[Rfam]
RNA sequence: UAAUUAAAACAUGUAAUUGCCUAUAUAAUGCCAUGAUAAGGGUGGCAAGUUUCUACCUAGAACCGUAAAUUCUAGACUAUAAGCAAAUUGAGGCCCCGA
Numbered sequence: 001u002a003a004u005u006a007a008a009a010c011a012u013g014u015a016a017u018u019g020c021c022u023a024u025a026u027a028a029u030g031c032c033a034u035g036a037u038a039a040g041g042g043u044g045g046c047a048a049g050u051u052u053c054u055a056c057c058u059a060g061a062a063c064c065g066u067a068a069a070u071u072c073u074a075g076a077c078u079a080u081a082a083g084c085a086a087a088u089u090g091a092g093g094c095c096c097c098g099a
Stems, first nucleotide, its partner, number of pairs: 018085003022081004029047006057075006
Purine riboswitch aptamer: a 99-nucleotide RNA from Levilactobacillus suantsaii. The match comes from Rfam's covariance-model search (70 bits). Rfam links the family to the GO term purine nucleobase biosynthetic process.